[Rfam]
RNA sequence: GUGCCCUUUUAAGGUGGCUGUGGCACUUUAAGAGGCUAACACAGAAGGGCAAAGGGAAGAAGUCUUCAUAAAACCUGGAGAUGAGACGGUACACCUCCUCUCGGGAUAUCGUCUGGAGUCACAUGU
Numbered sequence: 001g002u003g004c005c006c007u008u009u010u011a012a013g014g015u016g017g018c019u020g021u022g023g024c025a026c027u028u029u030a031a032g033a034g035g036c037u038a039a040c041a042c043a044g045a046a047g048g049g050c051a052a053a054g055g056g057a058a059g060a061a062g063u064c065u066u067c068a069u070a071a072a073a074c075c076u077g078g079a080g081a082u083g084a085g086a087c088g089g090u091a092c093a094c095c096u097c098c099u100c101u102c103g104g105g106a107u108a109u110c111g112u113c114u115g116g117a118g119u120c121a122c123a124u125g126u
Stems, first nucleotide, its partner, number of pairs: 002051009014040002017037001019035001021032001062120001064118005075105002078102004083097003
A member of the RNA family "Small nucleolar RNA SNORA26" from Jaculus jaculus, 126 nucleotides long. By type it is an H/ACA-box small nucleolar RNA. The snoRNA HBI-6 belong to the H/ACA family of snoRNAs, guiding the pseudouridylation of position U4522 if the 28S rRNA. HBI-6 is the human orthologue of mouse MBI-6 snoRNA. Pairs were carried over by alignment from the consensus structure, which was predicted with RNAalifold. Lineage of the source: Eukaryota > Opisthokonta > Theria > Rodentia > Jaculus. The literature on the family includes a 2001 paper in EMBO J by Huttenhofer et al., "RNomics: an experimental approach that identifies 201 candidates for novel, small, non-messenger RNAs in mouse".